[Rfam]
RNA sequence: ACGGAAGCCGGGCGAGGCCAAGGUCGAGCCGGAAGAGAAGGCUCUAUCUCCCGACCCCGGACUCCCAGCACGGGUCCCGGAACCCACGCGGAGCACAUACCGCGGAAUAGGUAAAAGCGUUGCGGGCCUGCGUACUUGCGAAGAGCGAGCGGCGAACACGACCUUUUGGGUGAGGUCAGCGUCGAAGCGCAUCGCAUCGCGCCGAGGCCAACCCACGCAACCCGAUACGCACGCUUGGUAACCGGAGACCAGUGCUUGGCGGGCGGCGCGCCGAAGUUUUUUCGAAGUACUUCGGACGCCGCCCGCUUCUAUUU
Numbered sequence: 001a002c003g004g005a006a007g008c009c010g011g012g013c014g015a016g017g018c019c020a021a022g023g024u025c026g027a028g029c030c031g032g033a034a035g036a037g038a039a040g041g042c043u044c045u046a047u048c049u050c051c052c053g054a055c056c057c058c059g060g061a062c063u064c065c066c067a068g069c070a071c072g073g074g075u076c077c078c079g080g081a082a083c084c085c086a087c088g089c090g091g092a093g094c095a096c097a098u099a100c101c102g103c104g105g106a107a108u109a110g111g112u113a114a115a116a117g118c119g120u121u122g123c124g125g126g127c128c129u130g131c132g133u134a135c136u137u138g139c140g141a142a143g144a145g146c147g148a149g150c151g152g153c154g155a156a157c158a159c160g161a162c163c164u165u166u167u168g169g170g171u172g173a174g175g176u177c178a179g180c181g182u183c184g185a186a187g188c189g190c191a192u193c194g195c196a197u198c199g200c201g202c203c204g205a206g207g208c209c210a211a212c213c214c215a216c217g218c219a220a221c222c223c224g225a226u227a228c229g230c231a232c233g234c235u236u237g238g239u240a241a242c243c244g245g246a247g248a249c250c251a252g253u254g255c256u257u258g259g260c261g262g263g264c265g266g267c268g269c270g271c272c273g274a275a276g277u278u279u280u281u282u283c284g285a286a287g288u289a290c291u292u293c294g295g296a297c298g299c300c301g302c303c304c305g306c307u308u309c310u311a312u313u314u
Stems, first nucleotide, its partner, number of pairs: 003065002008060005016052002021049002026044005066258001067256005073250002077245004084238003088234003093230002098113004119221006125209005130202004137196005145190003150184005160177006259306010271295007
About this RNA: Rfam assigns this 314-nucleotide sequence from Mycolicibacterium duvalii to the family "Mycobacterium smegmatis small RNA 1". Rfam's curators write: Mycobacterium smegmatis small RNA 1 is highly expressed during stationary phase of growth. Ms1 RNA directly interacts with RNA polymerase (RNAP), but in a different way than 6S, which is present in other bacteria. Ms1 does not require the presence of the main sigma factor for RNAP interaction. There is evidence that Ms1 RNA may function similar to 6S RNA in M. smegmatis which does not have 6S RNA. On this family, see Hnilicova et al., Nucleic Acids Res 2014: "Ms1, a novel sRNA interacting with the RNA polymerase core in mycobacteria". Its family is annotated with RNA polymerase binding in the Gene Ontology.